[Rfam]
RNA sequence: UCUCACGGGACCUGCAUUGUACACACUGUGCGUAUGAAUGACUGCAGCACAGCGCAUACAAUGUGGAUGCCGUGCUG
Numbered sequence: 001u002c003u004c005a006c007g008g009g010a011c012c013u014g015c016a017u018u019g020u021a022c023a024c025a026c027u028g029u030g031c032g033u034a035u036g037a038a039u040g041a042c043u044g045c046a047g048c049a050c051a052g053c054g055c056a057u058a059c060a061a062u063g064u065g066g067a068u069g070c071c072g073u074g075c076u077g
Base pairs, nucleotide, nucleotide: 012066013065015063016062017061018060019059020058021057024054026052027051028050029049030048031047
Shown here is a 77-nucleotide RNA from Salarias fasciatus, a member of the family "mir-460 microRNA precursor family". The source organism's lineage runs through Eukaryota, Neoteleostei, Acanthomorphata, Blenniiformes and Salarias. Rfam 15.1 lists 1,029 matches to the family in 498 species. Pairs were carried over by alignment from the consensus structure, which was predicted with RNAalifold.